[Rfam]
RNA: Selenocysteine insertion sequence 1
RNA sequence: GCCAGAUGAUGACGACAUGUGCAGAAACCCACCCUAUGGGCUGCUCACGUCCGAGCCUCCCUGGC
Numbered sequence: 001g002c003c004a005g006a007u008g009a010u011g012a013c014g015a016c017a018u019g020u021g022c023a024g025a026a027a028c029c030c031a032c033c034c035u036a037u038g039g040g041c042u043g044c045u046c047a048c049g050u051c052c053g054a055g056c057c058u059c060c061c062u063g064g065c
Stems, first nucleotide, its partner, number of pairs: 001065005014051003018047002021044003029039003